[Rfam]
RNA: Purine riboswitch aptamer
Nucleotides: 100
Stems, first nucleotide, its partner, number of pairs: 018086001020084006029049007058076007
Number, partner (000 for none) and nucleotide at each position: 001000c002000g003000c004000g005000c006000c007000u008000a009000a010000a011000u012000u013000c014000u015000g016000u017000c018086g019000c020084g021083u022082u023081g024080u025079a026000u027000a028000u029049g030048u031047u032046g033045g034044a035043u036000g037000a038000a039000u040000g041000g042000g043035a044034u045033c046032u047031g048030a049029c050000g051000u052000u053000u054000c055000u056000a057000c058076c059075a060074c061073c062072g063071a064070g065000c066000c067000u068000a069000u070064c071063u072062u073061g074060g075059u076058g077000a078000c079025u080024a081023c082022a083021a084020c085000a086018c087000a088000u089000u090000g091000u092000c093000u094000u095000g096000a097000u098000g099000c100000c